[Rfam]
RNA sequence: CCCUGUAUUCGAAAGUGAUCGCUGGCUGCCUGUGCCCCGGUCAUUGAUAGUGCAGGGAGAGAAGUUGAUGAAAGCCUUUCCCCGUGUUUGGGGGGUCUCCUGUCCCUUCCAGACCCUGGUGCUUUCGUACA
Numbered sequence: 001c002c003c004u005g006u007a008u009u010c011g012a013a014a015g016u017g018a019u020c021g022c023u024g025g026c027u028g029c030c031u032g033u034g035c036c037c038c039g040g041u042c043a044u045u046g047a048u049a050g051u052g053c054a055g056g057g058a059g060a061g062a063a064g065u066u067g068a069u070g071a072a073a074g075c076c077u078u079u080c081c082c083c084g085u086g087u088u089u090g091g092g093g094g095g096u097c098u099c100c101u102g103u104c105c106c107u108u109c110c111a112g113a114c115c116c117u118g119g120u121g122c123u124u125u126c127g128u129a130c131a
Stems, first nucleotide, its partner, number of pairs: 001057009014045008024036003067128001069127007086114005091108005

Rfam assigns this 131-nucleotide RNA from Sorex araneus to the family "Small nucleolar RNA SNORA71". Its family is annotated with RNA processing and nucleolus in the Gene Ontology. The base pairs follow the family's consensus structure, which was predicted with PFOLD. From the family's description: The members of this family belong to the H/ACA class of snoRNAs which bind a number of proteins (including dyskerin, Gar1p and Nop10p) to form snoRNP complexes. NCBI's taxonomy places the organism under Eukaryota, Metazoa, Vertebrata, Mammalia, Sorex. It is annotated as an H/ACA-box small nucleolar RNA.